The record is a 99-nucleotide sequence from Levilactobacillus bambusae, which matches "S10-Clostridia ribosomal protein leader" in Rfam. Lineage of the source: Bacteria > Bacillota > Bacilli > Lactobacillales > Levilactobacillus. The base pairs follow the family's consensus structure, which is taken from published work. The match comes from Rfam's covariance-model search (36 bits).
[Rfam]
RNA sequence: UUACAGCUAUGAUGUGGGAGGUUGCGACACGCCCGGCUGCUUUGCCAUGGGGCAUUGUUGGAGAUUUCCACGGAGUUAGUCCAUUUUCAAAAUAGACGA
Numbered sequence: 001u002u003a004c005a006g007c008u009a010u011g012a013u014g015u016g017g018g019a020g021g022u023u024g025c026g027a028c029a030c031g032c033c034c035g036g037c038u039g040c041u042u043u044g045c046c047a048u049g050g051g052g053c054a055u056u057g058u059u060g061g062a063g064a065u066u067u068c069c070a071c072g073g074a075g076u077u078a079g080u081c082c083a084u085u086u087u088c089a090a091a092a093u094a095g096a097c098g099a
Stems, first nucleotide, its partner, number of pairs: 014071003018068004025060005080099002085096003